[Rfam]
RNA sequence: AUCGCAAGCAAGCCGAACUCACAAGGCAUUCGGGGGCGGGGACGGGGGACCCAAUUGCGGUCUCUUCCCGCGUUCCGCUUCAUGGCGGAUCGCACCCGGGGAGAAACCUUGGGGUGAAGCCGCCAACCAGCGGCCGGGCAAGCCCUUCCGCCCGAACCCGACAGCUAACCUCGCAGGCGUGCCGGAGGGAACUC
Numbered sequence: 001a002u003c004g005c006a007a008g009c010a011a012g013c014c015g016a017a018c019u020c021a022c023a024a025g026g027c028a029u030u031c032g033g034g035g036g037c038g039g040g041g042a043c044g045g046g047g048g049a050c051c052c053a054a055u056u057g058c059g060g061u062c063u064c065u066u067c068c069c070g071c072g073u074u075c076c077g078c079u080u081c082a083u084g085g086c087g088g089a090u091c092g093c094a095c096c097c098g099g100g101g102a103g104a105a106a107c108c109u110u111g112g113g114g115u116g117a118a119g120c121c122g123c124c125a126a127c128c129a130g131c132g133g134c135c136g137g138g139c140a141a142g143c144c145c146u147u148c149c150g151c152c153c154g155a156a157c158c159c160g161a162c163a164g165c166u167a168a169c170c171u172c173g174c175a176g177g178c179g180u181g182c183c184g185g186a187g188g189g190a191a192c193u194c
Stems, first nucleotide, its partner, number of pairs: 012178003018041003043173005052111002112159003120133004136153004
Dot-bracket structure: ...........(((...(((..................))).(((((....((........................................................))(((.....((((......))))..((((..........))))...))).........)))))..)))................
The record is a 194-nucleotide RNA from Actinoplanes derwentensis, which matches "c-di-AMP riboswitch aptamer (ydaO/yuaA leader)" in Rfam.
Rfam links the family to the GO terms cyclic-di-AMP binding and regulation of gene expression.
Pairs were carried over by alignment from the consensus structure.
NCBI's taxonomy places the organism under Bacteria, Bacillati, Actinomycetes, Micromonosporales, Actinoplanes.
The match comes from Rfam's covariance-model search (79 bits).